[Rfam]
A member of the RNA family "Small nucleolar RNA ACA64" from Prolemur simus, 141 nucleotides long.
RNA sequence: GUUGGUUGAAAAUCACCCCUCCUCCCCUGCCCCCGGCUUUAGCCAUAGCCAGGGGUGAGAUGCGGCGCCCAGAGCCAACAGGGGCCUCAGCUCAGCACCCGCUGCCUCAUGUGCGGCGGUGAAACCCAGGUCCUGACAGGC
Dot-bracket structure: ....((((.(..((((..................((((........))))....))))..).))))..............(.(((((....(((.(...(((........)))....).))).....))))).).......

Lineage of the source: Eukaryota > Craniata > Boreoeutheria > Primates > Prolemur. A reference for the family is Schattner et al. (2006), "A computational screen for mammalian pseudouridylation guide H/ACA RNAs", RNA. Pairs were carried over by alignment from the consensus structure, which was predicted with WAR. Rfam links the family to the GO terms RNA processing and nucleolus.